[Rfam]
RNA sequence: UUCUGUGUAUGGCACUGGUAGAAUUCACUGUCACAGCACACAAUCAGUGAAUUACCAUAGGGCCAUAAACAGAG
Numbered sequence: 001u002u003c004u005g006u007g008u009a010u011g012g013c014a015c016u017g018g019u020a021g022a023a024u025u026c027a028c029u030g031u032c033a034c035a036g037c038a039c040a041c042a043a044u045c046a047g048u049g050a051a052u053u054a055c056c057a058u059a060g061g062g063c064c065a066u067a068a069a070c071a072g073a074g
Base pairs, nucleotide, nucleotide: 003072004071005070006069008067009066010065011064012063013062016057017056018055022053023052024051025050026049027048028047029046030045